[Rfam]
Nucleotides: 149
Base pairs, nucleotide, nucleotide: 001056002055003054004053005052006051014043015042016041017040018039020037021036022035023034069141070140071139072138073137082128083127084126085125086124090120091119095113096112097111098110099109
Number, partner (000 for none) and nucleotide at each position: 001056u002055g003054a004053u005052g006051g007000c008000g009000g010000u011000u012000c013000c014043u015042c016041u017040c018039a019000c020037u021036g022035c023034u024000u025000g026000g027000a028000g029000c030000c031000u032000u033000a034023g035022g036021u037020a038000g039018u040017g041016g042015g043014a044000u045000u046000u047000c048000a049000g050000u051006c052005c053004a054003u055002c056001a057000u058000a059000u060000a061000u062000c063000u064000a065000a066000g067000c068000u069141g070140a071139c072138u073137u074000g075000u076000c077000u078000u079000c080000a081000c082128u083127c084126a085125g086124g087000a088000c089000a090120g091119c092000a093000a094000g095113g096112g097111g098110a099109u100000g101000g102000g103000u104000u105000g106000g107000c108000u109099g110098u111097c112096c113095c114000a115000c116000u117000u118000a119091g120090c121000g122000c123000c124086u125085c126084u127083g128082a129000u130000u131000u132000u133000u134000g135000u136000g137073g138072a139071g140070u141069c142000a143000a144000a145000c146000a147000a148000u149000u

Annotation: A member of the RNA family "Small nucleolar RNA SNORA79" from Sus scrofa, 149 nucleotides long. Pairs were carried over by alignment from the consensus structure, which was predicted with RNAalifold. For this family Rfam cites "A computational screen for mammalian pseudouridylation guide H/ACA RNAs" (Schattner et al., RNA, 2006). Rfam links the family to the GO terms RNA processing and nucleolus. Taxonomically the source falls in Sus (Eukaryota, Teleostomi, Tetrapoda, Suina). From the family's description: ACA65 (SNORA79) is a member of the H/ACA class of snoRNAs that guide the sites of modification of uridines to pseudouridines. This snoRNA was identified by computational screening and its expression in mouse experimentally verified by Northern blot and primer extension analysis.